[Rfam]
RNA sequence: CCCGCCGUCUUAGGGGAGUAGCCGCCUUCGCUCCGGCGGAGGGCGCCUGUCAACAUAGUUGGCCCGCAUGGGCCAUGGCAUGCGCGACUUCGGUUUGGCGAGACCUUUGACACGAUUCCCUCGUCCGGGGUGGGCGGGGUUUCGUGUCAUCGGUCAACAGCCCGCCCCUGAGGA
Numbered sequence: 001c002c003c004g005c006c007g008u009c010u011u012a013g014g015g016g017a018g019u020a021g022c023c024g025c026c027u028u029c030g031c032u033c034c035g036g037c038g039g040a041g042g043g044c045g046c047c048u049g050u051c052a053a054c055a056u057a058g059u060u061g062g063c064c065c066g067c068a069u070g071g072g073c074c075a076u077g078g079c080a081u082g083c084g085c086g087a088c089u090u091c092g093g094u095u096u097g098g099c100g101a102g103a104c105c106u107u108u109g110a111c112a113c114g115a116u117u118c119c120c121u122c123g124u125c126c127g128g129g130g131u132g133g134g135c136g137g138g139g140u141u142u143c144g145u146g147u148c149a150u151c152g153g154u155c156a157a158c159a160g161c162c163c164g165c166c167c168c169u170g171a172g173g174a
Stems, first nucleotide, its partner, number of pairs: 025042003043085004048080005060075005088173005
Shown here is a 174-nucleotide RNA from Alkalilimnicola ehrlichii, a member of the family "Manganese Mn2+ riboswitch aptamer (yybP-ykoY)". It scores 66 bits against the family's covariance model. Rfam 15.1 lists 1,126 matches to the family in 1,062 species.